[Rfam]
RNA sequence: UGCGCAGGAGCCGGGGCCUGAGCCCGGGCCGCGCAGGCCGUGAACUCGUCGAGCUGCGCGUGCGGCCGGUGCUCAACCUGCCGGGUCCUGGCCCGGCGCU
Numbered sequence: 001u002g003c004g005c006a007g008g009a010g011c012c013g014g015g016g017c018c019u020g021a022g023c024c025c026g027g028g029c030c031g032c033g034c035a036g037g038c039c040g041u042g043a044a045c046u047c048g049u050c051g052a053g054c055u056g057c058g059c060g061u062g063c064g065g066c067c068g069g070u071g072c073u074c075a076a077c078c079u080g081c082c083g084g085g086u087c088c089u090g091g092c093c094c095g096g097c098g099c100u
Stems, first nucleotide, its partner, number of pairs: 002099004008094001010092009019075005024069002027067008037057002040054001045053003